Notes
A member of the RNA family "drz-agam-1 ribozyme" from Hermetia illucens, 80 nucleotides long. The base pairs follow the family's consensus structure, which is taken from published work. Gene Ontology term of the family: catalytic activity.

[Rfam]
RNA sequence: UUAUUAUCAAACUCUAUCUCUACCUCCACGUGGUGACCGCUGGGAGCUCUUUCUUAACGAAAAGCUGCAGACGGAGAAGG
Numbered sequence: 001u002u003a004u005u006a007u008c009a010a011a012c013u014c015u016a017u018c019u020c021u022a023c024c025u026c027c028a029c030g031u032g033g034u035g036a037c038c039g040c041u042g043g044g045a046g047c048u049c050u051u052u053c054u055u056a057a058c059g060a061a062a063a064g065c066u067g068c069a070g071a072c073g074g075a076g077a078a079g080g
Stems, first nucleotide, its partner, number of pairs: 013080003017076001019074002022034003045066004050061002053059001